mir-459 microRNA precursor family: an 81-nucleotide RNA sequence from Anguilla anguilla. The organism belongs to Anguilla, within Eukaryota. The base pairs follow the family's consensus structure, which was predicted with RNAalifold. Rfam links the family to the GO terms RISC complex and miRNA-mediated post-transcriptional gene silencing. It scores 86 bits against the family's covariance model.
RNA sequence: CUUCCUGCUCUCAGUAACAUGGAUUCAUCCUGUUGUGAAGUUGUGACCCAGCAGGGAGUCUCUGUUACUGGGGACAAGGGU
Numbered sequence: 001c002u003u004c005c006u007g008c009u010c011u012c013a014g015u016a017a018c019a020u021g022g023a024u025u026c027a028u029c030c031u032g033u034u035g036u037g038a039a040g041u042u043g044u045g046a047c048c049c050a051g052c053a054g055g056g057a058g059u060c061u062c063u064g065u066u067a068c069u070g071g072g073g074a075c076a077a078g079g080g081u
Stems, first nucleotide, its partner, number of pairs: 011071009021061006029055007037048001